RNA: 6S / SsrS RNA
RNA sequence: CGAGUCCUGAUGUGUACGUUGUAACUCCUUGUUUUGACCGAACAUUUCUGAAAAGGGAGCCCGUACGUUUUCAUACAGCGUAAAUGCCUCCAUGGAGAGAGGACUUACAAAGUUUUGAAACAGGGCACCCACCUGCUCCAGAGCGGGUUCAAAACGAAGGCCUUAUCGCGACGGCACGAUUGGGACUCGU
Numbered sequence: 001c002g003a004g005u006c007c008u009g010a011u012g013u014g015u016a017c018g019u020u021g022u023a024a025c026u027c028c029u030u031g032u033u034u035u036g037a038c039c040g041a042a043c044a045u046u047u048c049u050g051a052a053a054a055g056g057g058a059g060c061c062c063g064u065a066c067g068u069u070u071u072c073a074u075a076c077a078g079c080g081u082a083a084a085u086g087c088c089u090c091c092a093u094g095g096a097g098a099g100a101g102g103a104c105u106u107a108c109a110a111a112g113u114u115u116u117g118a119a120a121c122a123g124g125g126c127a128c129c130c131a132c133c134u135g136c137u138c139c140a141g142a143g144c145g146g147g148u149u150c151a152a153a154a155c156g157a158a159g160g161c162c163u164u165a166u167c168g169c170g171a172c173g174g175c176a177c178g179a180u181u182g183g184g185a186c187u188c189g190u
Stems, first nucleotide, its partner, number of pairs: 002188010012177004017173003030156004035151003038147002055130003059126004070119003073115001075113002082106002087102004